[Rfam]
The family of this 202-nucleotide RNA sequence from Cricetulus griseus is "Small nucleolar RNA SNORA73 family". The family is grouped with related families in Rfam's "snR30-U17 clan". Taxonomically the source falls in Cricetulus (Eukaryota, Vertebrata, Sarcopterygii, Mammalia). Gene Ontology terms of the family: nucleolus and RNA processing.
RNA sequence: CCAACGUGGAUAUCCCAGGAGGUCACUCUCCCUGGGCUCUGUCCUGGUGGCGUAGGGGAGCAGAGGCAUUGCCUGUGAUGUACAGUCCCUUUCCACAACGUUGGAGAUGAAGCUGGGCCUUGGGCCUGCCCCUGCAUAUUCCUACAACUUCUCAGAGUCCUGUGGACAGUGACUGAGGAGGCAAACCAUGCAGGAAACAGUC
Numbered sequence: 001c002c003a004a005c006g007u008g009g010a011u012a013u014c015c016c017a018g019g020a021g022g023u024c025a026c027u028c029u030c031c032c033u034g035g036g037c038u039c040u041g042u043c044c045u046g047g048u049g050g051c052g053u054a055g056g057g058g059a060g061c062a063g064a065g066g067c068a069u070u071g072c073c074u075g076u077g078a079u080g081u082a083c084a085g086u087c088c089c090u091u092u093c094c095a096c097a098a099c100g101u102u103g104g105a106g107a108u109g110a111a112g113c114u115g116g117g118c119c120u121u122g123g124g125c126c127u128g129c130c131c132c133u134g135c136a137u138a139u140u141c142c143u144a145c146a147a148c149u150u151c152u153c154a155g156a157g158u159c160c161u162g163u164g165g166a167c168a169g170u171g172a173c174u175g176a177g178g179a180g181g182c183a184a185a186c187c188a189u190g191c192a193g194g195a196a197a198c199a200g201u202c
Stems, first nucleotide, its partner, number of pairs: 001104007008044005014036003018029004047096004056089004060083001062081001064079001065076001131194007148180006157167004
A reference for the family is Cervelli et al. (2002), "Comparative Structure Analysis of Vertebrate U17 Small Nucleolar RNA (snoRNA)", J Mol Evol. It is annotated as an H/ACA-box small nucleolar RNA.